[Rfam]
This 565-nucleotide part of an RNA from Citrifermentans bemidjiense belongs to the Rfam family "Bacterial large subunit ribosomal RNA". The family's consensus secondary structure is taken from published work. Gene Ontology terms of the family: ribosome and structural constituent of ribosome. Lineage of the source: Bacteria > Desulfuromonadia > Geobacteraceae > Citrifermentans > Citrifermentans bemidjiense.
RNA sequence: UACUAAGGGCGUACGGUGGAUGCCUAGGCAGAGAGAGGCGAUGAAGGACGUGGUAAGCUGCGAUAAGCUUCGGUGAGCCGCUAAACAGGCUUUGACCCGGAGAUUUCCGAAUGGGGAAACCUACUGGAGGUAAUGCUUCAGUAACGCAUGGUGAAUACAUAGCCAUGCGUGGCGAACGAGGGGAACUGAAACAUCUAAGUACCCUCAGGAAAAGAAAACAAUAGUGAUUCCGUCAGUAGCGGCGAGCGAAAGCGGAACAGCCCAAACCUGUACCAUUUCGAUGGUGCGGGGGUUGUGGGGCCCCGACGUGGGAUUGAUGAUUGGUAGGAGAACGGUCUGGAAAGGCCGGCCAUAGUGGGUGAUAGCCCCUUAUCCGAAACCAUGAUUCACCCUAGGGUGUCCCCGAGUACCGCGAGGCACGUGAAACCUCGUGGGAAUCCGGGAGGACCAUCUCCCAAGGCUAAAUACUACUCUCUGACCGAUAGUGAACCAGUACCGUGAGGGAAAGGUGAAAAGUACUCCAAUGAGGAGGGUGAAAUAGAACCUGAAACCGUAUGCCUACAAG
Numbered sequence: 001u002a003c004u005a006a007g008g009g010c011g012u013a014c015g016g017u018g019g020a021u022g023c024c025u026a027g028g029c030a031g032a033g034a035g036a037g038g039c040g041a042u043g044a045a046g047g048a049c050g051u052g053g054u055a056a057g058c059u060g061c062g063a064u065a066a067g068c069u070u071c072g073g074u075g076a077g078c079c080g081c082u083a084a085a086c087a088g089g090c091u092u093u094g095a096c097c098c099g100g101a102g103a104u105u106u107c108c109g110a111a112u113g114g115g116g117a118a119a120c121c122u123a124c125u126g127g128a129g130g131u132a133a134u135g136c137u138u139c140a141g142u143a144a145c146g147c148a149u150g151g152u153g154a155a156u157a158c159a160u161a162g163c164c165a166u167g168c169g170u171g172g173c174g175a176a177c178g179a180g181g182g183g184a185a186c187u188g189a190a191a192c193a194u195c196u197a198a199g200u201a202c203c204c205u206c207a208g209g210a211a212a213a214g215a216a217a218a219c220a221a222u223a224g225u226g227a228u229u230c231c232g233u234c235a236g237u238a239g240c241g242g243c244g245a246g247c248g249a250a251a252g253c254g255g256a257a258c259a260g261c262c263c264a265a266a267c268c269u270g271u272a273c274c275a276u277u278u279c280g281a282u283g284g285u286g287c288g289g290g291g292g293u294u295g296u297g298g299g300g301c302c303c304c305g306a307c308g309u310g311g312g313a314u315u316g317a318u319g320a321u322u323g324g325u326a327g328g329a330g331a332a333c334g335g336u337c338u339g340g341a342a343a344g345g346c347c348g349g350c351c352a353u354a355g356u357g358g359g360u361g362a363u364a365g366c367c368c369c370u371u372a373u374c375c376g377a378a379a380c381c382a383u384g385a386u387u388c389a390c391c392c393u394a395g396g397g398u399g400u401c402c403c404c405g406a407g408u409a410c411c412g413c414g415a416g417g418c419a420c421g422u423g424a425a426a427c428c429u430c431g432u433g434g435g436a437a438u439c440c441g442g443g444a445g446g447a448c449c450a451u452c453u454c455c456c457a458a459g460g461c462u463a464a465a466u467a468c469u470a471c472u473c474u475c476u477g478a479c480c481g482a483u484a485g486u487g488a489a490c491c492a493g494u495a496c497c498g499u500g501a502g503g504g505a506a507a508g509g510u511g512a513a514a515a516g517u518a519c520u521c522c523a524a525u526g527a528g529g530a531g532g533g534u535g536a537a538a539u540a541g542a543a544c545c546u547g548a549a550a551c552c553g554u555a556u557g558c559c560u561a562c563a564a565g
Base pairs, nucleotide, nucleotide: 007560008559009558010557011556012555013554014553015552016551022545023509024508027480028479029477030476031475032474033473034472035471036469037468038173039172046108047107048106049062050061051060068102069101070100071099072098073097077090078089079088113122114121115120123142124141125140126139127138128137129136144170145169146168147167148166149165150164151163152162177208178206179205180204181203182202188195189194218225219224228465229256230255231254232253233252239247240246259462260461261460262459267290268289269288270287271286272285273284297404298403299402302397303396304395315389316388317387322382323381324380325379327375328374329373333348334347335346336345337344351355357369358368359367410434411433412432413431414430415429416428417427441456442455443454444453445452496503497502519531520530521529522528